[Rfam]
RNA: SAM riboswitch aptamer (S box leader)
RNA sequence: CAUUUAUUGAGAACGAGGUGAGAGACCAGGCUCCACGACCCUCUGGCAACCGCAAUACUUGUUGCAUGGUGCCAAUACCUGUCCUGCACAUGCGGGAAUAAUAAACU
Dot-bracket structure: ..((((((....(.((((...(((..[[[[)))......)))))((((.((((((......))))..))))))...(]]]](((.........)))..)))))))..